[Rfam]
RNA sequence: UGUUAAAUCAGGAAUUUAAAACAAUUUCUAGGUAAUGCAUAUAAUAUUUAUGUCAUUCCUAGAAAUUGUUCACAAUCCUGUAACA
Numbered sequence: 001u002g003u004u005a006a007a008u009c010a011g012g013a014a015u016u017u018a019a020a021a022c023a024a025u026u027u028c029u030a031g032g033u034a035a036u037g038c039a040u041a042u043a044a045u046a047u048u049u050a051u052g053u054c055a056u057u058c059c060u061a062g063a064a065a066u067u068g069u070u071c072a073c074a075a076u077c078c079u080g081u082a083a084c085a
Stems, first nucleotide, its partner, number of pairs: 009080004014076003020070007028062005041051002